Record summary:
Shown here is a 155-nucleotide RNA sequence from Shouchella clausii, a member of the family "glmS glucosamine-6-phosphate activated ribozyme aptamer". On this family, see Winkler et al., Nature 2004: "Control of gene expression by a natural metabolite-responsive ribozyme". This entry contains a glucosamine-6-phosphate activated ribozyme that is found in the mRNA for GlmS. GlmS is an enzyme that uses fructose-6-phosphate and glutamine to generate glucosamine-6-phosphate. The ribozyme catalyses self cleavage of the glmS mRNA that is thought to regulate GlmS activity. The source organism's lineage runs through Bacteria, Caryophanales, Bacillaceae, Shouchella and Shouchella clausii. The family's consensus secondary structure is taken from published work. By type it is a riboswitch.

RNA sequence: UCAUACACCAAAGCGCCAGGACUGGCAUGACGCCAGUUGACGAGGAGAGGGCUAAUCGAACUUUCGGCGGGUUCCCUCCGGCUGCGUGUGACAGCCGCAAGCUUUUGUCAAAACAAUGGGGUGACCUGUUGCACAAAAACAAAAGCAGCACGCAA
Numbered sequence: 001u002c003a004u005a006c007a008c009c010a011a012a013g014c015g016c017c018a019g020g021a022c023u024g025g026c027a028u029g030a031c032g033c034c035a036g037u038u039g040a041c042g043a044g045g046a047g048a049g050g051g052c053u054a055a056u057c058g059a060a061c062u063u064u065c066g067g068c069g070g071g072u073u074c075c076c077u078c079c080g081g082c083u084g085c086g087u088g089u090g091a092c093a094g095c096c097g098c099a100a101g102c103u104u105u106u107g108u109c110a111a112a113a114c115a116a117u118g119g120g121g122u123g124a125c126c127u128g129u130u131g132c133a134c135a136a137a138a139a140c141a142a143a144a145g146c147a148g149c150a151c152g153c154a155a
Base pairs, nucleotide, nucleotide: 020038021037022036023035024034025033026032047078048077049076050075051074056067057066058065059064079097080096081095082094083093084092102145103144104143105142106141107140114131115130116129117128118127119126120125